[Rfam]
Rfam assigns this 107-nucleotide RNA from Cuscuta campestris to the family "Small nucleolar RNA Z107/R87". NCBI's taxonomy places the organism under Eukaryota, Spermatophyta, eudicotyledons, lamiids, Cuscuta sect. Cleistogrammica. A reference for the family is Barneche et al. (2001), "Identification of 66 box C/D snoRNAs in Arabidopsis thaliana: extensive gene duplications generated multiple isoforms predicting new ribosomal RNA 2'-O-methylation sites", J Mol Biol. The match comes from Rfam's covariance-model search (59 bits).

Nucleotides: 107
Base pairs, nucleotide, nucleotide: 001107002106003105004104005103006102
Number, partner (000 for none) and nucleotide at each position: 001107g002106a003105u004104c005103g006102c007000u008000g009000u010000g011000a012000g013000g014000a015000c016000u017000c018000u019000g020000a021000a022000a023000g024000a025000u026000c027000a028000a029000g030000c031000u032000c033000a034000a035000c036000a037000g038000a039000c040000c041000g042000g043000a044000u045000c046000g047000c048000a049000g050000g051000a052000g053000c054000u055000u056000c057000u058000c059000c060000g061000a062000u063000u064000u065000g066000a067000g068000a069000g070000c071000u072000u073000u074000u075000g076000c077000a078000u079000g080000u081000c082000g083000a084000u085000u086000c087000a088000a089000u090000c091000u092000u093000c094000a095000u096000c097000c098000c099000u100000g101000a102006g103005c104004g105003a106002u107001c